A member of the RNA family "RNase MRP" from Schizothecium vesticola, 497 nucleotides long. Its Rfam clan is "RNaseP clan". Rfam's curators write: RNase MRP is an enzymatically active ribonucleoprotein with two distinct roles in eukaryotes. In mitochondria it plays a direct role in the initiation of mitochondrial DNA replication. In the nucleus it is involved in precursor rRNA processing, where it cleaves the internal transcribed spacer 1 between 18S and 5.8S rRNAs. It is annotated as a ribozyme.

RNA sequence: CCCUCGCCCGACAAAUCGCUAUUCGAAGCCACACACGGAGAGAGCAGCACCUCGGUGCCUGUUCUCUCACACAAAGCUUUGGGAGAAAGUCCCCGGACACCUGCUCUUCUUUGCGCAGACUGCGGAAACGCGCCGCCAUAGAAGCACCGCGGCUGAUCUCGGUCGCCAGCCCCUUGUCUGUCUUUUCCAGCUCCGCUCAUCGCGAAGUCGUCCGUCAAUCUCUUCAUCCACCGACUUGCAGUCGCUCACAUUCCCGGGCCGGAGACCACAUGGACGAAGAUAUGAGUCCGCGCUCUGGCUGCUUGGGGCGGGCGCGCUGUAUUCGGCGGUGGGGAGUUGUUCGAUGGUGGUGCAGCCGUUGGUAGGUCUGGACUGGGGGCGUCACGGCUGACUCGAGAGAUUUCGUCAAGAUCCUACAGUUAUGCGAUUGCUUGUGGGCCAUCCUCUUCGGGGGGCGGACCUCAAGUUACUCGACGGGGCUUAUUCUCGGUGCGAGG
Numbered sequence: 001c002c003c004u005c006g007c008c009c010g011a012c013a014a015a016u017c018g019c020u021a022u023u024c025g026a027a028g029c030c031a032c033a034c035a036c037g038g039a040g041a042g043a044g045c046a047g048c049a050c051c052u053c054g055g056u057g058c059c060u061g062u063u064c065u066c067u068c069a070c071a072c073a074a075a076g077c078u079u080u081g082g083g084a085g086a087a088a089g090u091c092c093c094c095g096g097a098c099a100c101c102u103g104c105u106c107u108u109c110u111u112u113g114c115g116c117a118g119a120c121u122g123c124g125g126a127a128a129c130g131c132g133c134c135g136c137c138a139u140a141g142a143a144g145c146a147c148c149g150c151g152g153c154u155g156a157u158c159u160c161g162g163u164c165g166c167c168a169g170c171c172c173c174u175u176g177u178c179u180g181u182c183u184u185u186u187c188c189a190g191c192u193c194c195g196c197u198c199a200u201c202g203c204g205a206a207g208u209c210g211u212c213c214g215u216c217a218a219u220c221u222c223u224u225c226a227u228c229c230a231c232c233g234a235c236u237u238g239c240a241g242u243c244g245c246u247c248a249c250a251u252u253c254c255c256g257g258g259c260c261g262g263a264g265a266c267c268a269c270a271u272g273g274a275c276g277a278a279g280a281u282a283u284g285a286g287u288c289c290g291c292g293c294u295c296u297g298g299c300u301g302c303u304u305g306g307g308g309c310g311g312g313c314g315c316g317c318u319g320u321a322u323u324c325g326g327c328g329g330u331g332g333g334g335a336g337u338u339g340u341u342c343g344a345u346g347g348u349g350g351u352g353c354a355g356c357c358g359u360u361g362g363u364a365g366g367u368c369u370g371g372a373c374u375g376g377g378g379g380c381g382u383c384a385c386g387g388c389u390g391a392c393u394c395g396a397g398a399g400a401u402u403u404c405g406u407c408a409a410g411a412u413c414c415u416a417c418a419g420u421u422a423u424g425c426g427a428u429u430g431c432u433u434g435u436g437g438g439c440c441a442u443c444c445u446c447u448u449c450g451g452g453g454g455g456c457g458g459a460c461c462u463c464a465a466g467u468u469a470c471u472c473g474a475c476g477g478g479g480c481u482u483a484u485u486c487u488c489g490g491u492g493c494g495a496g497g
Stems, first nucleotide, its partner, number of pairs: 002497006008490004014429006023083001024081006038068010087482003091479004121132004289316007319392002326388002329385003336380003348375004358368001360366001431466004436461001